Background: A member of the RNA family "FGF-1 internal ribosome entry site (IRES)" from Suricata suricatta, 168 nucleotides long. Gene Ontology term of the family: ribosome binding. The match comes from Rfam's covariance-model search (80 bits). NCBI's taxonomy places the organism under Eukaryota, Vertebrata, Euteleostomi, Herpestidae, Suricata. A reference for the family is Martineau et al. (2004), "Internal Ribosome Entry Site Structural Motifs Conserved among Mammalian Fibroblast Growth Factor 1 Alternatively Spliced mRNAs", Mol Cell Biol. The family's consensus secondary structure is taken from published work. Rfam 15.1 lists 127 matches to the family in 125 species.
RNA sequence: AACUCCAGGGGAAUAAGGGCAUCGCCUCCUCUUGGUGAAGGACACGCCCUUCUGAUGGAGAAUGGGAACUCCCUCCGCAGCUGCCCGCCUGCAGCACUCCCGUUAGGUCACCCUGGUCGCUGUCCGCAGCUGUGGCUGUCUCACCCCUGAAAGAAAGUGCCCCGGGGC
Numbered sequence: 001a002a003c004u005c006c007a008g009g010g011g012a013a014u015a016a017g018g019g020c021a022u023c024g025c026c027u028c029c030u031c032u033u034g035g036u037g038a039a040g041g042a043c044a045c046g047c048c049c050u051u052c053u054g055a056u057g058g059a060g061a062a063u064g065g066g067a068a069c070u071c072c073c074u075c076c077g078c079a080g081c082u083g084c085c086c087g088c089c090u091g092c093a094g095c096a097c098u099c100c101c102g103u104u105a106g107g108u109c110a111c112c113c114u115g116g117u118c119g120c121u122g123u124c125c126g127c128a129g130c131u132g133u134g135g136c137u138g139u140c141u142c143a144c145c146c147c148u149g150a151a152a153g154a155a156a157g158u159g160c161c162c163c164g165g166g167g168c
Stems, first nucleotide, its partner, number of pairs: 003167003008163004014154001016050004025041003029037001051150002058078001060075002064073003080142001081138001083136002089129004094124001096123001100122001